[Rfam]
RNA: mir-46/mir-47/mir-281 microRNA precursor family
Organism: Caenorhabditis japonica
RNA sequence: ACCGGGUGAAGCUGAAGAGAGCCGUCCUUUGACAGUUCGUCCACGUGGAAUAUCGUGCUGUCAUGGAGUCGCUCUCUUCAGAUGACCACGG
Numbered sequence: 001a002c003c004g005g006g007u008g009a010a011g012c013u014g015a016a017g018a019g020a021g022c023c024g025u026c027c028u029u030u031g032a033c034a035g036u037u038c039g040u041c042c043a044c045g046u047g048g049a050a051u052a053u054c055g056u057g058c059u060g061u062c063a064u065g066g067a068g069u070c071g072c073u074c075u076c077u078u079c080a081g082a083u084g085a086c087c088a089c090g091g
Base pairs, nucleotide, nucleotide: 014079015078016077017076018075020073021072022071025067026066027065031062032061033060035058036057